A member of the RNA family "mir-7594 microRNA precursor family" from Caenorhabditis briggsae, 63 nucleotides long.
The source organism's lineage runs through Eukaryota, Opisthokonta, Chromadorea, Rhabditida and Caenorhabditis.
Gene Ontology terms of the family: miRNA-mediated post-transcriptional gene silencing and RISC complex.
The family's consensus secondary structure was predicted with RNAalifold.

[Rfam]
RNA sequence: CCGGGACUGAUCGUAGCCUUCAACACUCGAAGCGAAGUGUUGAGGUAGACGUUUAGCCCGAAA
Dot-bracket structure: .((((...(((.((...((((((((((........))))))))))...)))))...))))...